Shown here is a 64-nucleotide sequence from Salmonella enterica, a member of the family "int-alpA RNA". About the family: Acidobacteria (1 example), Planctomycetes (1 example), Proteobacteria. By type it is a small RNA.
[Rfam]
RNA sequence: GCAGUGGCUAGGGUAGCUCCCGAAAAGCGGCAUCGUCACCGCCUGCCACUGAUUCAAUGACGAA
Dot-bracket structure: .(((((((..(((.....))).....((((..[[[[[.))))..))))))).......]]]]].